This 98-nucleotide RNA sequence from Panicum miliaceum belongs to the Rfam family "Small nucleolar RNA R11/Z151". The literature on the family includes a 2001 paper in J Mol Biol by Barneche et al., "Identification of 66 box C/D snoRNAs in Arabidopsis thaliana: extensive gene duplications generated multiple isoforms predicting new ribosomal RNA 2'-O-methylation sites". The match comes from Rfam's covariance-model search (59 bits). Taxonomically the source falls in Panicum sect. Panicum (Eukaryota, Embryophyta, Euphyllophyta, Panicum).
[Rfam]
RNA sequence: AGGCUUAUGGUGAUUGAUCCGUAAAAGGAUCUUAGCGGAUUUCUGUGAGGCGACGCGUCGCCCGUGAUCUCCACAUGUUGCUACACACACUGAAGCCU
Dot-bracket structure: (((((........................................................................................)))))